[Rfam]
RNA sequence: AGAUCAAUGAUAAGCAUAAUUAUCAGAGGAUUCUCAAAGGUUAUUUUCAGAUAUCAGCCAGUCU
Numbered sequence: 001a002g003a004u005c006a007a008u009g010a011u012a013a014g015c016a017u018a019a020u021u022a023u024c025a026g027a028g029g030a031u032u033c034u035c036a037a038a039g040g041u042u043a044u045u046u047u048c049a050g051a052u053a054u055c056a057g058c059c060a061g062u063c064u
Base pairs, nucleotide, nucleotide: 001064002063003062004061
Rfam assigns this 64-nucleotide sequence from Prolemur simus to the family "Small nucleolar RNA SNORD109A".
Humans have two copies of the SNORD109 gene, SNORD109A and SNORD109B.
A search with the family's covariance model found it, with a score of 37 bits.
Its Rfam clan is "SNORD74 clan".
The organism belongs to Prolemur, within Eukaryota.
Gene Ontology terms of the family: RNA processing and nucleolus.
For this family Rfam cites "The IC-SNURF-SNRPN transcript serves as a host for multiple small nucleolar RNA species and as an antisense RNA for UBE3A" (Runte et al., Hum Mol Genet, 2001).